[Rfam]
Shown here is a 73-nucleotide sequence from Pediculus humanus, a member of the family "mir-2 microRNA precursor family". On this family, see Lee and Ambros, Science 2001: "An extensive class of small RNAs in Caenorhabditis elegans". The family has 56 seed sequences and 918 matches in Rfam 15.1. NCBI's taxonomy places the organism under Eukaryota, Protostomia, Allotriocarida, Neoptera, Pediculus humanus.

RNA sequence: CCGCUCACAAAGUGGUUGGUAUAUGUUGUAUUCAUUUGAUUUAUCAUAUCACAGCCAGCUUUGAUGAGUGGGU
Dot-bracket structure: ....((((((((((((((..(..(((...................))))..)))))).))))).)))......
Pairs were carried over by alignment from the consensus structure, which was predicted with PFOLD. It scores 52 bits against the family's covariance model.